[Rfam]
RNA sequence: UCGUCAGGUAGGAUAAUUCUUACCUGUUACUCUAUAUGGAGAACAGAUUAGAAAAUGAUGUUUGGAGUUCACAUGAUACAUGAUUAUACGUCUUUGCGUAAUCAGGACUUGCAAUAGGUCUCAUGGUGGCAAAACAGAC
Numbered sequence: 001u002c003g004u005c006a007g008g009u010a011g012g013a014u015a016a017u018u019c020u021u022a023c024c025u026g027u028u029a030c031u032c033u034a035u036a037u038g039g040a041g042a043a044c045a046g047a048u049u050a051g052a053a054a055a056u057g058a059u060g061u062u063u064g065g066a067g068u069u070c071a072c073a074u075g076a077u078a079c080a081u082g083a084u085u086a087u088a089c090g091u092c093u094u095u096g097c098g099u100a101a102u103c104a105g106g107a108c109u110u111g112c113a114a115u116a117g118g119u120c121u122c123a124u125g126g127u128g129g130c131a132a133a134a135c136a137g138a139c
Stems, first nucleotide, its partner, number of pairs: 024046003028043001030041004075094002078091002081086001098127002101124002104121003
Shown here is a 139-nucleotide RNA from Prolemur simus, a member of the family "U8 small nucleolar RNA". Taxonomically the source falls in Prolemur (Eukaryota, Euteleostomi, Dipnotetrapodomorpha, Primates). Pairs were carried over by alignment from the consensus structure, which is taken from published work. It scores 89 bits against the family's covariance model. Gene Ontology terms of the family: nucleolus and RNA processing. By type it is a C/D-box small nucleolar RNA.